BsrG: a 260-nucleotide sequence from Oceanobacillus sp. J11TS1. The base pairs follow the family's consensus structure, which was predicted with WAR. Gene Ontology terms of the family: autolysis and toxin activity. Taxonomically the source falls in Oceanobacillus (Bacteria, Bacillati, Bacillota, Caryophanales). On this family, see Irnov et al., Nucleic Acids Res 2010: "Identification of regulatory RNAs in Bacillus subtilis". About the family: bsrE, bsrG and bsrH pair through intermolecular interactions with antisense sRNAs. They form type I toxin/antitoxin system that includes an mRNA encoding for a short, toxic peptide (bsrE, bsrG and bsrH) and an antitoxin that is comprised of an antisense RNA. bsrG encodes a 39-amino-acid toxin, and the 180 nucleotide antisense sRNA called SR4 acts as the antitoxin (they overlap by 123 nucleotides). SR4 interaction with the 3'UTR of bsrG RNA promotes bsrG degradation and inhibits its translation. BsrG interferes with cell envelope biosynthesis, causes membrane invaginations and delocalisation of the cell wall synthesis and initiates autolysis. bsrE RNA encodes 30 amino-acid toxin peptide. Its antitoxin gene, SR5 overlaps by 112 nucleotides at the 3' end of bsrE. SR5 also overlaps bsrG from nucleotide 163 to 52 (Rfam overlap check). The antitoxin SR5 promotes bsrE degradation but unlike SR4 it does not directly inhibits toxin mRNA translation. By type it is a small RNA.
RNA sequence: GACAAUAGCACAUUGGUUAACUCAUGGGUGGUUGGCGCACUCCCAAAAGGGGGUGGUGCUUAUGACAGUUGCAGAAUCAUUGAUGCUUAUGAUUAGUUUCGGAGCGUUAGUUGUUGCAAUAAUGUCAGAUAAAAAUAACAAAAAAUAAAAUCCACCCUUGAGUUCGCGGCUCAUUGAUAGGGUGGAAUAUCCUUAAUCGUGCCAGGCCCCUUGAAGGGAACCAAGCUAUCGUGUAGGCUGAAGGUGUUAGAGCACCUUCA
Number, nucleotide and partner (000 for none) at each position: 001g000002a232003c231004a000005a229006u000007a227008g226009c225010a000011c000012a000013u205014u204015g203016g202017u000018u201019a200020a000021c162022u161023c160024a159025u000026g157027g156028g155029u000030g152031g151032u150033u149034g000035g000036c000037g000038c055039a054040c053041u052042c051043c050044c049045a000046a000047a000048a000049g044050g043051g042052g041053g040054u039055g038056g000057u000058g000059c000060u000061u000062a000063u000064g126065a125066c124067a123068g000069u121070u000071g000072c000073a000074g000075a000076a000077u092078c091079a090080u000081u000082g000083a000084u000085g000086c000087u000088u000089a000090u079091g078092a077093u000094u000095a000096g000097u000098u000099u000100c000101g000102g117103a000104g115105c000106g000107u000108u000109a000110g000111u000112u000113g000114u000115u104116g000117c102118a000119a000120u000121a069122a000123u067124g066125u065126c064127a000128g000129a000130u000131a000132a000133a000134a000135a000136u000137a000138a000139c000140a000141a000142a000143a000144a000145a000146u000147a000148a000149a033150a032151u031152c030153c000154a000155c028156c027157c026158u000159u024160g023161a022162g021163u000164u000165c000166g000167c000168g000169g000170c000171u000172c000173a190174u189175u000176g000177a000178u000179a000180g000181g000182g000183u000184g000185g000186a000187a000188u000189a174190u173191c000192c000193u000194u000195a000196a000197u000198c000199g000200u019201g018202c016203c015204a014205g013206g000207c218208c217209c216210c000211u000212u000213g000214a000215a000216g209217g208218g207219a000220a000221c000222c000223a000224a000225g009226c008227u007228a000229u005230c000231g003232u002233g000234u000235a000236g000237g000238c000239u260240g259241a258242a257243g256244g255245u254246g253247u252248u000249a000250g000251a000252g247253c246254a245255c244256c243257u242258u241259c240260a239